[Rfam]
Record summary
The family of this 68-nucleotide RNA sequence from Trichoglossum hirsutum is "bZIP non canonical Hac1/Xbp1 intron". The family's consensus secondary structure was predicted with RNAfold. A search with the family's covariance model found it, with a score of 43 bits. Rfam describes the family as follows. bZIP intron RNA is a non-canonical intron that was first reported in HAC1 gene in yeast and XBP1 gene in Metazoa. On this family, see Hooks and Griffiths-Jones, RNA Biol 2011: "Conserved RNA structures in the non-canonical Hac1/Xbp1 intron".

RNA sequence: ACGACUCUCGACAUGACACAACAUCCUGCUGAGAUGUUGUGUGACCAGCAGUGUCUGUCGAGAGUUAC
Numbered sequence: 001a002c003g004a005c006u007c008u009c010g011a012c013a014u015g016a017c018a019c020a021a022c023a024u025c026c027u028g029c030u031g032a033g034a035u036g037u038u039g040u041g042u043g044a045c046c047a048g049c050a051g052u053g054u055c056u057g058u059c060g061a062g063a064g065u066u067a068c
Stems, first nucleotide, its partner, number of pairs: 003066005009060005020038006043055003